Rfam assigns this 180-nucleotide RNA from Paraburkholderia phenazinium to the family "Burkholderia sRNA Bp2_Cand287_SIPHT".

RNA sequence: AAAAAGCCCGCUUUGCGUCGGCAUAAGCGGGCUUCAUGUGCGGGGGAAAGCUGGAGCGGCGGCGGACGGUUGCUGCUUUUCUCCACCGUUCGCUUUAGCUGUUUUGGGUUGCCCCGCGUCCGCAAGCUGAGAUCAAAUCGACGCAAGCCGUCAUCCUAACAUGCGUGGCGCGCUGCGUGA
Numbered sequence: 001a002a003a004a005a006g007c008c009c010g011c012u013u014u015g016c017g018u019c020g021g022c023a024u025a026a027g028c029g030g031g032c033u034u035c036a037u038g039u040g041c042g043g044g045g046g047a048a049a050g051c052u053g054g055a056g057c058g059g060c061g062g063c064g065g066a067c068g069g070u071u072g073c074u075g076c077u078u079u080u081c082u083c084c085a086c087c088g089u090u091c092g093c094u095u096u097a098g099c100u101g102u103u104u105u106g107g108g109u110u111g112c113c114c115c116g117c118g119u120c121c122g123c124a125a126g127c128u129g130a131g132a133u134c135a136a137a138u139c140g141a142c143g144c145a146a147g148c149c150g151u152c153a154u155c156c157u158a159a160c161a162u163g164c165g166u167g168g169c170g171c172g173c174u175g176c177g178u179g180a
Base pairs, nucleotide, nucleotide: 004034005033006032007031008030009029010028011027012026014023015022016021039145040144041143042142049094050093051092055090056089059086061084062083064082065081066080095130096129097128098127099126100125106115107114108113116123117122160179161178162177163176164175165174
The source organism's lineage runs through Bacteria, Pseudomonadota, Burkholderiales, Burkholderiaceae and Paraburkholderia. Rfam classes the family as a small RNA. The literature on the family includes a 2012 paper in BMC Genomics by Khoo et al., "Computational discovery and RT-PCR validation of novel Burkholderia conserved and Burkholderia pseudomallei unique sRNAs".